c-di-AMP riboswitch aptamer (ydaO/yuaA leader): a 169-nucleotide RNA from Paenibacillus stellifer.
[Rfam]
RNA sequence: AUUACAAGAACGCUGAAUUCCCGGCGCACGGGAAACGGGGGAACCACCAGGCGAAAGCCUACUUGGGGUGAAUCCUUAGGAGACUACAGAAAUGCGGUCUCACAGGGUAGGGCGACUCUCACCGUCCGAAUCCGACAGCUAACCUCGCAAGCGUAUAGAGAGAGAUCCU
Numbered sequence: 001a002u003u004a005c006a007a008g009a010a011c012g013c014u015g016a017a018u019u020c021c022c023g024g025c026g027c028a029c030g031g032g033a034a035a036c037g038g039g040g041g042a043a044c045c046a047c048c049a050g051g052c053g054a055a056a057g058c059c060u061a062c063u064u065g066g067g068g069u070g071a072a073u074c075c076u077u078a079g080g081a082g083a084c085u086a087c088a089g090a091a092a093u094g095c096g097g098u099c100u101c102a103c104a105g106g107g108u109a110g111g112g113c114g115a116c117u118c119u120c121a122c123c124g125u126c127c128g129a130a131u132c133c134g135a136c137a138g139c140u141a142a143c144c145u146c147g148c149a150a151g152c153g154u155a156u157a158g159a160g161a162g163a164g165a166u167c168c169u
Stems, first nucleotide, its partner, number of pairs: 011153004018034006036147005045065002066133003074107004110127004
Record summary
Rfam links the family to the GO terms cyclic-di-AMP binding and regulation of gene expression. The source organism's lineage runs through Bacteria, Bacillati, Bacilli, Paenibacillaceae and Paenibacillus. A search with the family's covariance model found it, with a score of 94 bits.